[Rfam]
RNA sequence: CCACGAAGCCGCCUGGUGGAUGGCUUGGCUCGGGCGCCGACGAAGGGCGCGGCAAGCUCGCGAUAAUCCCGGGGUAGGCGCAUGCAGCCUUUGAUCCCGGGGUUCCCUAAUGGGGCUUCCUGCCGCGGUGAACCCGCGGCGUCCCGUAAGGGACGGGAACCCCCCGAACGGAAACAUCUUAGUAGGGGGAGGAGGAGAAAUCAACAGAGAUCCCCUGAGUAGGGGCGACCGAAAGGGGGAGAGCCCAAACCAAAUCCCCCCGGGAUGACUGGGGGGAGAUGUGGGGUAAUGGGCUUGGGGCACCGCCUAAGCGGCCUAGCCGAAGUGGGCUGGAAGGCCCCACCGAAGAGGGUGACAGUCCCGUAGGUUAAAGGCCGUCGGCGGAUUCCCAAGUUCCGGAGUACCAUGCCUUGGUUUUGGCAUGGGAAGUCGGGGGCCACUGGCCUCCAAGGCUAAAUACGUCCCGAGACCGAUAGCGUACAAGUACCGUGAGGGAACGCUGAAAAGCACCCCGGAAGGGGGGUGAAAAGAGCCUGAAACCAGGCGGUUAAAGGA
Numbered sequence: 001c002c003a004c005g006a007a008g009c010c011g012c013c014u015g016g017u018g019g020a021u022g023g024c025u026u027g028g029c030u031c032g033g034g035c036g037c038c039g040a041c042g043a044a045g046g047g048c049g050c051g052g053c054a055a056g057c058u059c060g061c062g063a064u065a066a067u068c069c070c071g072g073g074g075u076a077g078g079c080g081c082a083u084g085c086a087g088c089c090u091u092u093g094a095u096c097c098c099g100g101g102g103u104u105c106c107c108u109a110a111u112g113g114g115g116c117u118u119c120c121u122g123c124c125g126c127g128g129u130g131a132a133c134c135c136g137c138g139g140c141g142u143c144c145c146g147u148a149a150g151g152g153a154c155g156g157g158a159a160c161c162c163c164c165c166g167a168a169c170g171g172a173a174a175c176a177u178c179u180u181a182g183u184a185g186g187g188g189g190a191g192g193a194g195g196a197g198a199a200a201u202c203a204a205c206a207g208a209g210a211u212c213c214c215c216u217g218a219g220u221a222g223g224g225g226c227g228a229c230c231g232a233a234a235g236g237g238g239g240a241g242a243g244c245c246c247a248a249a250c251c252a253a254a255u256c257c258c259c260c261c262g263g264g265a266u267g268a269c270u271g272g273g274g275g276g277a278g279a280u281g282u283g284g285g286g287u288a289a290u291g292g293g294c295u296u297g298g299g300g301c302a303c304c305g306c307c308u309a310a311g312c313g314g315c316c317u318a319g320c321c322g323a324a325g326u327g328g329g330c331u332g333g334a335a336g337g338c339c340c341c342a343c344c345g346a347a348g349a350g351g352g353u354g355a356c357a358g359u360c361c362c363g364u365a366g367g368u369u370a371a372a373g374g375c376c377g378u379c380g381g382c383g384g385a386u387u388c389c390c391a392a393g394u395u396c397c398g399g400a401g402u403a404c405c406a407u408g409c410c411u412u413g414g415u416u417u418u419g420g421c422a423u424g425g426g427a428a429g430u431c432g433g434g435g436g437c438c439a440c441u442g443g444c445c446u447c448c449a450a451g452g453c454u455a456a457a458u459a460c461g462u463c464c465c466g467a468g469a470c471c472g473a474u475a476g477c478g479u480a481c482a483a484g485u486a487c488c489g490u491g492a493g494g495g496a497a498c499g500c501u502g503a504a505a506a507g508c509a510c511c512c513c514g515g516a517a518g519g520g521g522g523g524u525g526a527a528a529a530g531a532g533c534c535u536g537a538a539a540c541c542a543g544g545c546g547g548u549u550a551a552a553g554g555a
Stems, first nucleotide, its partner, number of pairs: 007549010022534001023500002027471002029468006035461002044108004048062003068101006077089003112121003142153004160191001161189005171178002201208002212239005222230002242454004250284003260272004295392004303384004319368003325341001327340004344348001350362003404425007432448005487494002
The record is a 555-nucleotide part of an RNA from Thermocladium modestius, which matches "Archaeal large subunit ribosomal RNA" in Rfam. A search with the family's covariance model found it, with a score of 2765 bits. NCBI's taxonomy places the organism under Archaea, Thermoproteota, Thermoprotei, Thermoproteaceae, Thermocladium. Rfam links the family to the GO terms structural constituent of ribosome and ribosome. Clan: LSU clan.